[Rfam]
RNA sequence: GUGGCUCCCGGAUGGGUGCUCUCUACUAGUGCUGUGCAGAGGCUUUCCCUGAGGCUGCUGUGAGCCUGUAGGGUUUCCCCCUAGGUCGCUGG
Numbered sequence: 001g002u003g004g005c006u007c008c009c010g011g012a013u014g015g016g017u018g019c020u021c022u023c024u025a026c027u028a029g030u031g032c033u034g035u036g037c038a039g040a041g042g043c044u045u046u047c048c049c050u051g052a053g054g055c056u057g058c059u060g061u062g063a064g065c066c067u068g069u070a071g072g073g074u075u076u077c078c079c080c081c082u083a084g085g086u087c088g089c090u091g092g
Base pairs, nucleotide, nucleotide: 006092008085009084010082011081014080015079016078018076021073022072023071024070025069026068028067029066031065032064033063036061037060038059039058041056042055043054044053045052046051
RNA: mir-9058 microRNA precursor family